[Rfam]
Description:
The family of this 107-nucleotide RNA from Pan troglodytes is "Mitochondrial DNA control region secondary structure A". For this family Rfam cites "Evidence for variable selective pressures at a large secondary structure of the human mitochondrial DNA control region" (Pereira et al., Mol Biol Evol, 2008). The family has 53 seed sequences and 795 matches in Rfam 15.1. The family's RNA type in Rfam is antisense RNA. Lineage of the source: Eukaryota > Craniata > Mammalia > Homininae > Pan. Pairs were carried over by alignment from the consensus structure, which is taken from published work.

RNA sequence: UACUUUCAUGGGGAAGCAAAUUUGAGUACCACCCAAGUAUUGACCCACUCCAUCAAUGGCCACCAUGUAUAUCGUGCAUUACUGCCAGCCACCAUGAAUAUUACCAU
Numbered sequence: 001u002a003c004u005u006u007c008a009u010g011g012g013g014a015a016g017c018a019a020a021u022u023u024g025a026g027u028a029c030c031a032c033c034c035a036a037g038u039a040u041u042g043a044c045c046c047a048c049u050c051c052a053u054c055a056a057u058g059g060c061c062a063c064c065a066u067g068u069a070u071a072u073c074g075u076g077c078a079u080u081a082c083u084g085c086c087a088g089c090c091a092c093c094a095u096g097a098a099u100a101u102u103a104c105c106a107u
Stems, first nucleotide, its partner, number of pairs: 005098007012090002016085003022036003026032002037060002040056004065079005